[Rfam]
RNA: Streptomyces RNA 5676
Organism: Streptomyces sp. CB03234
RNA sequence: AGAUGAGAGAAACACCCCGUCCGCAGGCAACUGCGGGCGGCUCCGGGACGGAGCCUCCCCAGCCUCGUCCUGGUCGUGCCCUCGCGCACACCACCGGAGCUUCCGGCUCCGGAUCUCCUCACCGAUCGGA
Numbered sequence: 001a002g003a004u005g006a007g008a009g010a011a012a013c014a015c016c017c018c019g020u021c022c023g024c025a026g027g028c029a030a031c032u033g034c035g036g037g038c039g040g041c042u043c044c045g046g047g048a049c050g051g052a053g054c055c056u057c058c059c060c061a062g063c064c065u066c067g068u069c070c071u072g073g074u075c076g077u078g079c080c081c082u083c084g085c086g087c088a089c090a091c092c093a094c095c096g097g098a099g100c101u102u103c104c105g106g107c108u109c110c111g112g113a114u115c116u117c118c119u120c121a122c123c124g125a126u127c128g129g130a
Base pairs, nucleotide, nucleotide: 004121005120006119007118009117010116017040018039019038020037021036022035023034024033025032026031043073044072045071046070047069049067050066051065053063054062076089077088078087079086094112095111096110097109098108099107100106122129123128